[Rfam]
RNA: U5 spliceosomal RNA
Organism: Chlorocebus sabaeus
RNA sequence: UAACUCUGGUUUCUCUUCAGAUCAUAUAAAUCUUUUGCCUUUUACUAAAGAUUUCUGUGGGGAGGAACAGUUAUGAGUCUUUAUCCAAUUUUUGAGGCCUCGUGUUUCAUGAGGAU
Numbered sequence: 001u002a003a004c005u006c007u008g009g010u011u012u013c014u015c016u017u018c019a020g021a022u023c024a025u026a027u028a029a030a031u032c033u034u035u036u037g038c039c040u041u042u043u044a045c046u047a048a049a050g051a052u053u054u055c056u057g058u059g060g061g062g063a064g065g066a067a068c069a070g071u072u073a074u075g076a077g078u079c080u081u082u083a084u085c086c087a088a089u090u091u092u093u094g095a096g097g098c099c100u101c102g103u104g105u106u107u108c109a110u111g112a113g114g115a116u
Base pairs, nucleotide, nucleotide: 003078004077005076006075009068010067011066012065013064014063015062016061017060018059019058028054029053030052031051032050033049034048035047096116098114099113100112101111102110